[Rfam]
RNA sequence: UUGCAGCCGGCAAGUCCUACACAACCAGCUCCUGAAAAUCCUCCAGGGUGGGAACGCAGCAAAGGUAAUCGGUUGUAGCGGUGUGAUGUAGAUCGCUUGCCGUUUU
Numbered sequence: 001u002u003g004c005a006g007c008c009g010g011c012a013a014g015u016c017c018u019a020c021a022c023a024a025c026c027a028g029c030u031c032c033u034g035a036a037a038a039u040c041c042u043c044c045a046g047g048g049u050g051g052g053a054a055c056g057c058a059g060c061a062a063a064g065g066u067a068a069u070c071g072g073u074u075g076u077a078g079c080g081g082u083g084u085g086a087u088g089u090a091g092a093u094c095g096c097u098u099g100c101c102g103u104u105u106u
Stems, first nucleotide, its partner, number of pairs: 008102008017091005022085002024082002

Notes: Shown here is a 106-nucleotide RNA from Chryseobacterium taklimakanense, a member of the family "Bacteroidales small SRP". On this family, see Ryan et al., Nat Commun 2020: "A high-resolution transcriptome map identifies small RNA regulation of metabolism in the gut microbe Bacteroides thetaiotaomicron". The family's consensus secondary structure is taken from published work.